[Rfam]
RNA sequence: GGAUUUCGACCAGGAGAGAGCUUCGCGAGAAGCCGCCGAAGGCGCAGGGCCGCAAGGCUCGAACGCUCAGGCAAAAGGACUGGUCGGCGCCC
Dot-bracket structure: .....((((((((......((((......)))).(((((..(((...((((....))))....))))).))).......)))))))).....